[Rfam]
This 61-nucleotide RNA sequence from Halococcus thailandensis belongs to the Rfam family "S15-Halobacteria ribosomal protein leader". It is one of the family's seed sequences. The family's RNA type in Rfam is cis-regulatory leader.
RNA sequence: GUGGGAACAGCACGGCCGCAAAUCCGACUCGUCCACGUGGACUCAGGGAUUGCGGUAGUGU
Dot-bracket structure: .........((((.(((((((..((.....((((....))))....)).))))))).))))
Numbered sequence: 001g002u003g004g005g006a007a008c009a010g011c012a013c014g015g016c017c018g019c020a021a022a023u024c025c026g027a028c029u030c031g032u033c034c035a036c037g038u039g040g041a042c043u044c045a046g047g048g049a050u051u052g053c054g055g056u057a058g059u060g061u
Stems, first nucleotide, its partner, number of pairs: 010061004015056007024048002031042004